[Rfam]
RNA sequence: CCCAUGACUAUAUGAUGAGAUGAAUGUUGGUAGGGACAUCUUAUUGACAGUGAUGAAUACCAACUUUUCUGACUUCAUGGG
Numbered sequence: 001c002c003c004a005u006g007a008c009u010a011u012a013u014g015a016u017g018a019g020a021u022g023a024a025u026g027u028u029g030g031u032a033g034g035g036a037c038a039u040c041u042u043a044u045u046g047a048c049a050g051u052g053a054u055g056a057a058u059a060c061c062a063a064c065u066u067u068u069c070u071g072a073c074u075u076c077a078u079g080g081g
Base pairs, nucleotide, nucleotide: 001081002080003079004078005077
This 81-nucleotide RNA sequence from Liparis tanakae belongs to the Rfam family "Small nucleolar RNA SNORD74". For this family Rfam cites "Classification of gas5 as a multi-small-nucleolar-RNA (snoRNA) host gene and a member of the 5'-terminal oligopyrimidine gene family reveals common features of snoRNA host genes" (Smith and Steitz, Mol Cell Biol, 1998). Its family is annotated with RNA processing and nucleolus in the Gene Ontology. The organism belongs to Liparis, within Eukaryota. The family has 22 seed sequences and 929 matches in Rfam 15.1. The base pairs follow the family's consensus structure, which was predicted with PFOLD. The match comes from Rfam's covariance-model search (60 bits).